[Rfam]
The record is a 304-nucleotide RNA from Candidatus Accumulibacter cognatus, which matches "Betaproteobacteria transfer-messenger RNA" in Rfam. Clan: tRNA clan. The literature on the family includes a 1996 paper in RNA by Williams and Bartel, "Phylogenetic analysis of tmRNA secondary structure". It scores 237 bits against the family's covariance model. About the family: Bacterial tmRNA, also known as 10Sa RNA or SsrA, is named for its dual tRNA and mRNA-like properties. Its role is to liberate the mRNA from a stalled ribosome. To accomplish this part of the tmRNA is used as a reading frame that ends in a translation stop signal. The broken mRNA is replaced in the ribosome by the tmRNA and translation of the tmRNA leads to addition of a proteolysis tag to the incomplete protein enabling recognition by a protease. The family's consensus secondary structure is taken from published work.

RNA sequence: CUGCACGCAGCGCUUGUGUUCAAGGGUCACUGUCCCCAUAAUGGCAGGCAUGGUUGUAAUUCCGGCAACCCGGAAGCGUUCUGGACGCGGGUUCGAUUCCCGCCACCUCCACCACUGCGGGGGUGUACUGGUUUCGACAGGGUGACAGAUGGUGAGCAGGCAACCCGAAAGGCGACGGACGUAAUCCGAGCAAAACCACAAACGCCAACGAUGAGCGUUUCGCACUGGCCGCUUAGGCCUGCUGAGGACGUAGCCGUCCAAUAAACAGAACGGCUAUCGGCGGGGGCUUCGGUCCCCGCCGUUA
Numbered sequence: 001c002u003g004c005a006c007g008c009a010g011c012g013c014u015u016g017u018g019u020u021c022a023a024g025g026g027u028c029a030c031u032g033u034c035c036c037c038a039u040a041a042u043g044g045c046a047g048g049c050a051u052g053g054u055u056g057u058a059a060u061u062c063c064g065g066c067a068a069c070c071c072g073g074a075a076g077c078g079u080u081c082u083g084g085a086c087g088c089g090g091g092u093u094c095g096a097u098u099c100c101c102g103c104c105a106c107c108u109c110c111a112c113c114a115c116u117g118c119g120g121g122g123g124u125g126u127a128c129u130g131g132u133u134u135c136g137a138c139a140g141g142g143u144g145a146c147a148g149a150u151g152g153u154g155a156g157c158a159g160g161c162a163a164c165c166c167g168a169a170a171g172g173c174g175a176c177g178g179a180c181g182u183a184a185u186c187c188g189a190g191c192a193a194a195a196c197c198a199c200a201a202a203c204g205c206c207a208a209c210g211a212u213g214a215g216c217g218u219u220u221c222g223c224a225c226u227g228g229c230c231g232c233u234u235a236g237g238c239c240u241g242c243u244g245a246g247g248a249c250g251u252a253g254c255c256g257u258c259c260a261a262u263a264a265a266c267a268g269a270a271c272g273g274c275u276a277u278c279g280g281c282g283g284g285g286g287c288u289u290c291g292g293u294c295c296c297c298g299c300c301g302u303u304a
Stems, first nucleotide, its partner, number of pairs: 052165005062160002065157002068153003077144007087103005104125007166181002246259003250277006282299001284297003